[Rfam]
RNA sequence: GGAAAGGCUUCGUUCCCCGGUGGGGCGCUCGGGCUUCAAACCCGAGAGGGGCUGCCAGCAGUCCCUGGUGGGUUCGACUCCCACGCUUUUCC
Numbered sequence: 001g002g003a004a005a006g007g008c009u010u011c012g013u014u015c016c017c018c019g020g021u022g023g024g025g026c027g028c029u030c031g032g033g034c035u036u037c038a039a040a041c042c043c044g045a046g047a048g049g050g051g052c053u054g055c056c057a058g059c060a061g062u063c064c065c066u067g068g069u070g071g072g073u074u075c076g077a078c079u080c081c082c083a084c085g086c087u088u089u090u091c092c
Stems, first nucleotide, its partner, number of pairs: 001092008011027003015024003028046006048065005069083004
RNA: Selenocysteine transfer RNA